Rfam assigns this 123-nucleotide RNA from Bos grunniens to the family "Small Cajal body specific RNA 15".
RNA sequence: CUGGAGACUAACAAAAUAGAGUCCUUGAAGUCAAGCUGACUCUGCUUUUAGCCUCCUAAAUGAAAAGGUAGAUAGAACAGGUCUUGUGUGCAAAAUGAAUUCAAGUUCAUACUACAAAAACAU
Numbered sequence: 001c002u003g004g005a006g007a008c009u010a011a012c013a014a015a016a017u018a019g020a021g022u023c024c025u026u027g028a029a030g031u032c033a034a035g036c037u038g039a040c041u042c043u044g045c046u047u048u049u050a051g052c053c054u055c056c057u058a059a060a061u062g063a064a065a066a067g068g069u070a071g072a073u074a075g076a077a078c079a080g081g082u083c084u085u086g087u088g089u090g091c092a093a094a095a096u097g098a099a100u101u102c103a104a105g106u107u108c109a110u111a112c113u114a115c116a117a118a119a120a121c122a123u
Stems, first nucleotide, its partner, number of pairs: 003056004008051004017044007024035004068115004073111002081107001083105004
scaRNAs are a specific class of small nuclear RNAs which localise to the Cajal bodies and guide the modification of RNA polymerase II transcribed spliceosomal RNAs U1, U2, U4, U5 and U12. ACA45 belongs to the H/ACA box class of guide RNAs as it has the predicted hairpin-hinge-hairpin-tail structure, the conserved H/ACA-box motifs and is found associated with GAR1. ACA45 is predicted to guide the pseudouridylation of residue U37 of the U2 spliceosomal snRNA.
The organism belongs to Bos, within Eukaryota.
Clan: SCARNA4 clan.
Rfam classes the family as a small Cajal body RNA.